[Rfam]
RNA: Bacterial large subunit ribosomal RNA, nucleotides 848 to 1279
RNA sequence: CUCCCCGAAAUAUCUUUAGGGAUAGCCUCAAGUAUAUUCACGAGCGGUAAAGCACUAUUUGAGCUAGGGGCCUUACCCGGUUACCAAACUCAGAGAAACUCUGAAUGCUCGUGAAGUGAGCUUGGGAGUCAGACGGUGGGGGCUAAGCUCCAUCGUCAAGAGGGAAACAGCCCAGAUCAAUGGCUAAGGUCCCGGAGUUGCAGCUAAGUGGGAAAGGAUGUGAAGAUGCCCAGACAGCUAGGAGGUUGGCUUAGAAGCAGCCAUCCUUUAAAGAAAGCGUAAUAGCUCACUAGUCGAGUGUCUUUGCACCGAUAAUGUAACGGGGCUCAAGCUGCACACCGAAGCCUUGAACUCUGUGAGGAGUGGUAGGGGAGCAUUCUCGAACUGCGAAGCCGAACUGAGAAGUCGGAUGGAGUGUCGAGAAAAGACUUU
Numbered sequence: 001c002u003c004c005c006c007g008a009a010a011u012a013u014c015u016u017u018a019g020g021g022a023u024a025g026c027c028u029c030a031a032g033u034a035u036a037u038u039c040a041c042g043a044g045c046g047g048u049a050a051a052g053c054a055c056u057a058u059u060u061g062a063g064c065u066a067g068g069g070g071c072c073u074u075a076c077c078c079g080g081u082u083a084c085c086a087a088a089c090u091c092a093g094a095g096a097a098a099c100u101c102u103g104a105a106u107g108c109u110c111g112u113g114a115a116g117u118g119a120g121c122u123u124g125g126g127a128g129u130c131a132g133a134c135g136g137u138g139g140g141g142g143c144u145a146a147g148c149u150c151c152a153u154c155g156u157c158a159a160g161a162g163g164g165a166a167a168c169a170g171c172c173c174a175g176a177u178c179a180a181u182g183g184c185u186a187a188g189g190u191c192c193c194g195g196a197g198u199u200g201c202a203g204c205u206a207a208g209u210g211g212g213a214a215a216g217g218a219u220g221u222g223a224a225g226a227u228g229c230c231c232a233g234a235c236a237g238c239u240a241g242g243a244g245g246u247u248g249g250c251u252u253a254g255a256a257g258c259a260g261c262c263a264u265c266c267u268u269u270a271a272a273g274a275a276a277g278c279g280u281a282a283u284a285g286c287u288c289a290c291u292a293g294u295c296g297a298g299u300g301u302c303u304u305u306g307c308a309c310c311g312a313u314a315a316u317g318u319a320a321c322g323g324g325g326c327u328c329a330a331g332c333u334g335c336a337c338a339c340c341g342a343a344g345c346c347u348u349g350a351a352c353u354c355u356g357u358g359a360g361g362a363g364u365g366g367u368a369g370g371g372g373a374g375c376a377u378u379c380u381c382g383a384a385c386u387g388c389g390a391a392g393c394c395g396a397a398c399u400g401a402g403a404a405g406u407c408g409g410a411u412g413g414a415g416u417g418u419c420g421a422g423a424a425a426a427g428a429c430u431u432u
Base pairs, nucleotide, nucleotide: 001374002373003372004371005370006369011024012023013022014021015020026128027126028125029124030123031122032121033120035119037115038114039113040112041111042110043109044108045107050102051100052099056096058094060092061091062090063089067085068084069082070081071080072079132157133156134155135154136153137152138151139150140149141148162173163172164171177350178349179348180347182346183345184344188340189339190338197337199336200335201334202333203332204331216310217309220307221306222305223304224303225302226301227300228299229298237294238293239292240291241290243267244266245265248262249261250260268272273288277286278285351364352363353362354361355360375427377424378423379422380421381420382419383418384416385415392411394409397406398405399404